About this RNA: A member of the RNA family "Purine riboswitch aptamer" from Neobacillus cucumis, 102 nucleotides long. It scores 90 bits against the family's covariance model.
RNA sequence: UCAAACAACAGUUUUUACCCUCGUAUAUCCAUGGGAAUAUGGCCCAUAAGUUUCUACCCAAUAACCGUAAAUUAUUGGACUAUGAGGGAAAGUCAAUAUUGU
Numbered sequence: 001u002c003a004a005a006c007a008a009c010a011g012u013u014u015u016u017a018c019c020c021u022c023g024u025a026u027a028u029c030c031a032u033g034g035g036a037a038u039a040u041g042g043c044c045c046a047u048a049a050g051u052u053u054c055u056a057c058c059c060a061a062u063a064a065c066c067g068u069a070a071a072u073u074a075u076u077g078g079a080c081u082a083u084g085a086g087g088g089a090a091a092g093u094c095a096a097u098a099u100u101g102u
Stems, first nucleotide, its partner, number of pairs: 018088008031047005058078007